mir-981 microRNA precursor family: an 80-nucleotide RNA sequence from Hyalella azteca.
The match comes from Rfam's covariance-model search (59 bits).
Rfam links the family to the GO terms RISC complex and miRNA-mediated post-transcriptional gene silencing.
RNA sequence: ACCGAGAGCUUCAGGUUUCGCGGUAAACGAGCUGUGAUUAUAAACCAGUUCGUUGUCGUCGAAACCUGCACUUCUGUGGU
Numbered sequence: 001a002c003c004g005a006g007a008g009c010u011u012c013a014g015g016u017u018u019c020g021c022g023g024u025a026a027a028c029g030a031g032c033u034g035u036g037a038u039u040a041u042a043a044a045c046c047a048g049u050u051c052g053u054u055g056u057c058g059u060c061g062a063a064a065c066c067u068g069c070a071c072u073u074c075u076g077u078g079g080u
Base pairs, nucleotide, nucleotide: 001080002079003078004077005075012068013067014066015065016064017063018062019061020060029051030050031049032048033047